[Rfam]
This 85-nucleotide sequence from Dorcoceras hygrometricum belongs to the Rfam family "Small nucleolar RNA R11/Z151". A search with the family's covariance model found it, with a score of 84 bits. Gene Ontology terms of the family: RNA processing and nucleolus. Pairs were carried over by alignment from the consensus structure, which was predicted with PFOLD. Rfam classes the family as a C/D-box small nucleolar RNA. The literature on the family includes a 2001 paper in J Mol Biol by Barneche et al., "Identification of 66 box C/D snoRNAs in Arabidopsis thaliana: extensive gene duplications generated multiple isoforms predicting new ribosomal RNA 2'-O-methylation sites". Taxonomically the source falls in Dorcoceras (Eukaryota, Viridiplantae, asterids, Trichosporeae).

RNA sequence: UGGCGUAUGAUGAAAAAUCAAUUAUCUUAGCGGAUUUCAGUGAGAUCUUUAAUCAAUGAUCUGAUUGUUACACACACUGAAGCCA
Numbered sequence: 001u002g003g004c005g006u007a008u009g010a011u012g013a014a015a016a017a018u019c020a021a022u023u024a025u026c027u028u029a030g031c032g033g034a035u036u037u038c039a040g041u042g043a044g045a046u047c048u049u050u051a052a053u054c055a056a057u058g059a060u061c062u063g064a065u066u067g068u069u070a071c072a073c074a075c076a077c078u079g080a081a082g083c084c085a
Base pairs, nucleotide, nucleotide: 001085002084003083004082